[Rfam]
RNA: T-box leader
Organism: Mobilitalea sibirica
RNA sequence: GUAAAUGCGAUGAAAAGAACUAGUAAGAAUGAGAUUUUCCUACAGAAAGCUACCGGUUGAUGAGAGGUGCAGGAAAUAUUAUUCUGAAUACAUCUUUGAGCUUCACACCGAACAGAGAAAUCUCAGUAGGCUGUUGACGGUUUCCUGCACCCGUUAUCGUGCUAGAGUAUACCCGAGACAUACGACUCAUAUGUUUGAGAGAAUAUCCGGCGUACUUGAAGAGGUUGGUUGUGUGAACAGCUGAUAUAUAUGAGGUGGUACCGCGAGAUAAUUCCCGCCCUCAAA
Numbered sequence: 001g002u003a004a005a006u007g008c009g010a011u012g013a014a015a016a017g018a019a020c021u022a023g024u025a026a027g028a029a030u031g032a033g034a035u036u037u038u039c040c041u042a043c044a045g046a047a048a049g050c051u052a053c054c055g056g057u058u059g060a061u062g063a064g065a066g067g068u069g070c071a072g073g074a075a076a077u078a079u080u081a082u083u084c085u086g087a088a089u090a091c092a093u094c095u096u097u098g099a100g101c102u103u104c105a106c107a108c109c110g111a112a113c114a115g116a117g118a119a120a121u122c123u124c125a126g127u128a129g130g131c132u133g134u135u136g137a138c139g140g141u142u143u144c145c146u147g148c149a150c151c152c153g154u155u156a157u158c159g160u161g162c163u164a165g166a167g168u169a170u171a172c173c174c175g176a177g178a179c180a181u182a183c184g185a186c187u188c189a190u191a192u193g194u195u196u197g198a199g200a201g202a203a204u205a206u207c208c209g210g211c212g213u214a215c216u217u218g219a220a221g222a223g224g225u226u227g228g229u230u231g232u233g234u235g236a237a238c239a240g241c242u243g244a245u246a247u248a249u250a251u252g253a254g255g256u257g258g259u260a261c262c263g264c265g266a267g268a269u270a271a272u273u274c275c276c277g278c279c280c281u282c283a284a285a
Stems, first nucleotide, its partner, number of pairs: 007101002015096004026085006038074003051069004104136002106133002108130002138153003224245009252282004263278003267274001